[Rfam]
RNA sequence: GGUGAUAAACGCGGUCGUAAUAAGCCGAUCGGACCCGGGGGCGGUACCCGGCGCCUCCACCACUUUCUCCUUACCGCGCUUCGCGGCCGGCUCCCCGGAGGGGAGUCGCGAAGCGCAAACAGGGAGUCUAUGGGGGCGAAAUAGGAUCGACGAAGGUCUAAAGGACUUAGCUUUUGCCCGGCAUGAUACCACCGUUAUCGGGUCACACAGAAUAGUUGCCAAUGACAACUAUGCUGAGGCCGCUCUCGCUGCGUAA
Numbered sequence: 001g002g003u004g005a006u007a008a009a010c011g012c013g014g015u016c017g018u019a020a021u022a023a024g025c026c027g028a029u030c031g032g033a034c035c036c037g038g039g040g041g042c043g044g045u046a047c048c049c050g051g052c053g054c055c056u057c058c059a060c061c062a063c064u065u066u067c068u069c070c071u072u073a074c075c076g077c078g079c080u081u082c083g084c085g086g087c088c089g090g091c092u093c094c095c096c097g098g099a100g101g102g103g104a105g106u107c108g109c110g111a112a113g114c115g116c117a118a119a120c121a122g123g124g125a126g127u128c129u130a131u132g133g134g135g136g137c138g139a140a141a142u143a144g145g146a147u148c149g150a151c152g153a154a155g156g157u158c159u160a161a162a163g164g165a166c167u168u169a170g171c172u173u174u175u176g177c178c179c180g181g182c183a184u185g186a187u188a189c190c191a192c193c194g195u196u197a198u199c200g201g202g203u204c205a206c207a208c209a210g211a212a213u214a215g216u217u218g219c220c221a222a223u224g225a226c227a228a229c230u231a232u233g234c235u236g237a238g239g240c241c242g243c244u245c246u247c248g249c250u251g252c253g254u255a256a
Stems, first nucleotide, its partner, number of pairs: 001178005013167004025156002029153003035051005052138007179194003
Shown here is a 256-nucleotide sequence from Hyphomicrobium denitrificans, a member of the family "permuted transfer-messenger RNA". The organism belongs to Hyphomicrobium denitrificans, within Bacteria. The match comes from Rfam's covariance-model search (138 bits). It is annotated as a non-coding RNA gene.